[Rfam]
RNA sequence: AUACCUUUCUCGGGCUUUUGGCUAAGAUCAAGUGCAUUGUAUCUGUUCUGAUCAGUUUAAUAUCUGAUCCGUGGUCCAUCGGGCCACAUUAAAAAAAAAAAGAAAUGAUGCAGCAUCGGUAAGGUCGUGCAAUGUACCUUGGUUGUUGCGCGACAUCCACUAACUUCUCACACCAGCCCCGGUCA
Numbered sequence: 001a002u003a004c005c006u007u008u009c010u011c012g013g014g015c016u017u018u019u020g021g022c023u024a025a026g027a028u029c030a031a032g033u034g035c036a037u038u039g040u041a042u043c044u045g046u047u048c049u050g051a052u053c054a055g056u057u058u059a060a061u062a063u064c065u066g067a068u069c070c071g072u073g074g075u076c077c078a079u080c081g082g083g084c085c086a087c088a089u090u091a092a093a094a095a096a097a098a099a100a101a102g103a104a105a106u107g108a109u110g111c112a113g114c115a116u117c118g119g120u121a122a123g124g125u126c127g128u129g130c131a132a133u134g135u136a137c138c139u140u141g142g143u144u145g146u147u148g149c150g151c152g153a154c155a156u157c158c159a160c161u162a163a164c165u166u167c168u169c170a171c172a173c174c175a176g177c178c179c180c181g182g183u184c185a
Base pairs, nucleotide, nucleotide: 008027009026010025012023013022015020050069051068052067053066054065055064071087072086073085074084075083076082077081124154125153126152127151128150129149130148131147136143137142165185168182169181
This 185-nucleotide RNA sequence from Chara braunii belongs to the Rfam family "U2 spliceosomal RNA". The organism belongs to Chara, within Eukaryota. A reference for the family is Thomas et al. (1990), "The spliceosomal snRNAs of Caenorhabditis elegans", Nucleic Acids Res. By type it is a spliceosomal small nuclear RNA. Rfam describes the family as follows. U2 is a small nuclear RNA (snRNA) component of the spliceosome (involved in pre-mRNA splicing). Pairs were carried over by alignment from the consensus structure, which is taken from published work.